[Rfam]
RNA sequence: CCCCUUCCCAAACACAUCCACGAAGCCUAUAUUCCCAGUGUUCCCUCGGGAACUAUGGACAUAAACGCGCUCGUAAUAAGCGGAUCGGACCCGGGGGCGGUACCCGGCGGCUCCACCAUAAGACCCUUGUUGGGGGACCAUGGGGCCGAAACAGGAUCGACGAACGUCUAAAGGGGUUUGCUUUGUCCCGGUGAGGUACCACCGUUAUCGGUCCGUAAAGCAUAAUUGCCAACAACAAUCAUGCUCCGGUUGCAGUUGCUGCGUAAGCGGUAACAAGACCGAAACUUAAGCCCUCUCGCCUAGCCGCGUGAGGCGGGGUUCGCAGGCACCUGGCAACAGAAGCCUGCACU
Number, nucleotide and partner (000 for none) at each position: 001c000002c000003c000004c000005u000006u000007c000008c000009c000010a000011a000012a000013c000014a000015c000016a000017u000018c000019c000020a000021c000022g000023a000024a000025g000026c000027c000028u000029a000030u000031a000032u000033u000034c000035c000036c000037a000038g000039u000040g053041u052042u051043c050044c049045c000046u000047c000048g000049g044050g043051a042052a041053c040054u000055a000056u000057g188058g187059a186060c185061a184062u000063a000064a000065a000066c000067g181068c180069g177070c176071u175072c174073g000074u000075a000076a000077u000078a000079a000080g000081c166082g165083g000084a000085u163086c162087g161088g000089a000090c000091c107092c106093g105094g104095g103096g000097g000098c000099g000100g000101u000102a000103c095104c094105c093106g092107g091108c148109g147110g146111c145112u144113c143114c142115a000116c000117c000118a000119u000120a000121a000122g000123a000124c000125c000126c000127u000128u000129g000130u000131u000132g000133g000134g000135g000136g000137a000138c000139c000140a000141u000142g114143g113144g112145g111146c110147c109148g108149a000150a000151a000152c000153a000154g000155g000156a000157u000158c000159g000160a000161c087162g086163a085164a000165c082166g081167u000168c000169u000170a000171a000172a000173g000174g072175g071176g070177u069178u000179u000180g068181c067182u000183u000184u061185g060186u059187c058188c057189c204190g203191g202192u201193g000194a000195g214196g213197u000198a212199c211200c210201a192202c191203c190204g189205u000206u000207a000208u000209c000210g200211g199212u198213c196214c195215g000216u000217a000218a000219a000220g000221c000222a000223u000224a000225a000226u000227u000228g000229c000230c000231a000232a000233c000234a000235a000236c000237a000238a000239u000240c000241a000242u000243g000244c000245u000246c000247c000248g000249g000250u000251u000252g000253c000254a000255g000256u000257u000258g000259c000260u000261g000262c000263g000264u000265a000266a000267g000268c000269g000270g000271u000272a000273a000274c000275a000276a000277g000278a000279c000280c000281g000282a000283a000284a000285c000286u000287u000288a000289a000290g000291c000292c000293c000294u000295c000296u000297c000298g000299c000300c000301u000302a000303g000304c000305c000306g000307c000308g000309u000310g000311a000312g000313g000314c000315g000316g331317g330318g329319u328320u000321c000322g347323c346324a345325g344326g343327c342328a319329c318330c317331u316332g000333g000334c000335a000336a000337c000338a000339g000340a000341a000342g327343c326344c325345u324346g323347c322348a000349c000350u000